[Rfam]
RNA: U11 spliceosomal RNA
RNA sequence: AUAAAGGGUGCUUGCUACUUCCAUGGCAUGCGAGACCUCGCGGUCUGGUAGGGUAUGGCCAUCAAGACAUACCCAGCACGUAAUUUUUGUCUCCAAGGACAGUUGGUAGUCAAUACUCCGGCGUCCGG
Numbered sequence: 001a002u003a004a005a006g007g008g009u010g011c012u013u014g015c016u017a018c019u020u021c022c023a024u025g026g027c028a029u030g031c032g033a034g035a036c037c038u039c040g041c042g043g044u045c046u047g048g049u050a051g052g053g054u055a056u057g058g059c060c061a062u063c064a065a066g067a068c069a070u071a072c073c074c075a076g077c078a079c080g081u082a083a084u085u086u087u088u089g090u091c092u093c094c095a096a097g098g099a100c101a102g103u104u105g106g107u108a109g110u111c112a113a114u115a116c117u118c119c120g121g122c123g124u125c126c127g128g
Base pairs, nucleotide, nucleotide: 008079009078010077011076012075013028014027015026016025017024029050030049031048033046034045035044036043037042051074052073053072054071055070056069057068097126098125099124100123102122103121104120105119106118108117109116110115